[Rfam]
Nucleotides: 053
Stems, first nucleotide, its partner, number of pairs: 011033002014030004
Number, partner (000 for none) and nucleotide at each position: 001000a002000u003000a004000u005000u006000u007000u008000u009000u010000u011033u012032c013000g014030a015029u016028a017027u018000a019000g020000a021000g022000c023000a024000c025000u026000u027017a028016u029015g030014u031000a032012g033011g034000u035000a036000a037000a038000a039000u040000g041000a042000u043000u044000u045000g046000a047000a048000c049000c050000a051000u052000u053000u
Shown here is a 53-nucleotide RNA sequence from Nyssa sinensis, a member of the family "Plastid-atpF group II-D1 intron". The literature on the family includes a 2023 paper in Plant Commun by Richter et al., "Retrograde signaling in plants: A critical review focusing on the GUN pathway and beyond". From the family's description: Plastid atpF is a non-coding RNA (ncRNA) recognised in plastids. Its family is annotated with Group II intron splicing in the Gene Ontology. The family has 49 seed sequences and 1,372 matches in Rfam 15.1. Lineage of the source: Eukaryota > Streptophyta > Gunneridae > asterids > Nyssa. The match comes from Rfam's covariance-model search (59 bits).